[Rfam]
RNA sequence: AAUGGAAGCUUAGUUGUCGCUAUGAUUAGAGGAAAGUCCGGGCUCCAUGGAGAAAAGGUGCCGGUUAAUGGCCGGCGAGUGUAAAAACUUAGGGAAAGUGCCACAGAAAAUAUACCUCCUACUGAAAAGUUGGGAAGGGUGAAAUGGUGCGGUAAGAGCGCACCGCUGAUUUGGCAACAGAUCAGGCAUGGCAAACCCCACCUGGAGCAAAUUUAAGCAAAGAGUUGGUUCUUCACUAAUGCUCUUGGGUUAAAUGCUAUAAUUUUACAGCAAUGUAAAAUAGAGACAAAUGACAACUUAAUACAAAACCCGGCUUAUAAGCUUCUAUUAAAA
Dot-bracket structure: ((((((((((.(((((((.(((....)))....[[[.[[[[[((((.....[[..((((((((((.....)))))(((((......)))).)((...(((((............(((((.(((....))).)))..)).......((((((.......))))))(((((((((....)))))))).)..)))..)))))))))))))...((((.....((((((((((..]].)))))..))))).....))))......((((((((....))))))))..........)))))))..........]]]]]]]]...))))))))))....
RNA: Bacterial RNase P class A
Organism: Candidatus Cytomitobacter primus